A member of the RNA family "mir-965 microRNA precursor family" from Operophtera brumata, 71 nucleotides long. A reference for the family is Huang et al. (2012), "The regulation of silkworm fibroin L chain production by miRNA-965 and miRNA-1926 in insect cells", Bioorg Khim. Taxonomically the source falls in Operophtera (Eukaryota, Eumetazoa, Lepidoptera, Neolepidoptera).

RNA sequence: CCUUUCGGGGAAAAAGGCGUGUGUCUAUGUAUGUAUGACAUACAUAAACACAUGUCUUUUUCCCCGAAGAG
Numbered sequence: 001c002c003u004u005u006c007g008g009g010g011a012a013a014a015a016g017g018c019g020u021g022u023g024u025c026u027a028u029g030u031a032u033g034u035a036u037g038a039c040a041u042a043c044a045u046a047a048a049c050a051c052a053u054g055u056c057u058u059u060u061u062c063c064c065c066g067a068a069g070a071g
Base pairs, nucleotide, nucleotide: 003069004068005067006066007065009063010062011061013059014058017055018054019053020052021051024048026046027045028044029043